Rfam assigns this 172-nucleotide RNA sequence from Torulaspora delbrueckii to the family "Small nucleolar RNA snR80". Taxonomically the source falls in Torulaspora (Eukaryota, Opisthokonta, Dikarya, Saccharomycetaceae). On this family, see Schattner et al., Nucleic Acids Res 2004: "Genome-wide searching for pseudouridylation guide snoRNAs: analysis of the Saccharomyces cerevisiae genome". Clan: SNORA28 clan. The match comes from Rfam's covariance-model search (105 bits). The family's RNA type in Rfam is H/ACA-box small nucleolar RNA. Rfam links the family to the GO terms nucleolus and RNA processing.

[Rfam]
RNA sequence: AGACGUUUGACAACACUCUGGGACCUAGUUUGGAAUGCAAUUUCUCUUUGAGAAUUAAAACCAUAAACCUGUACUUUGUCCCUAUUUUAUCAACAAACAAGAUCAAUUGACAAUUACUCACCGAGAUAGACUUUUCCCAUGUCUAUAUUGGUCCAUUUUCACUGUCAUACAA
Numbered sequence: 001a002g003a004c005g006u007u008u009g010a011c012a013a014c015a016c017u018c019u020g021g022g023a024c025c026u027a028g029u030u031u032g033g034a035a036u037g038c039a040a041u042u043u044c045u046c047u048u049u050g051a052g053a054a055u056u057a058a059a060a061c062c063a064u065a066a067a068c069c070u071g072u073a074c075u076u077u078g079u080c081c082c083u084a085u086u087u088u089a090u091c092a093a094c095a096a097a098c099a100a101g102a103u104c105a106a107u108u109g110a111c112a113a114u115u116a117c118u119c120a121c122c123g124a125g126a127u128a129g130a131c132u133u134u135u136c137c138c139a140u141g142u143c144u145a146u147a148u149u150g151g152u153c154c155a156u157u158u159u160c161a162c163u164g165u166c167a168u169a170c171a172a
Stems, first nucleotide, its partner, number of pairs: 007096003020082005027075003031058001033056002036053001109166003121151004126146006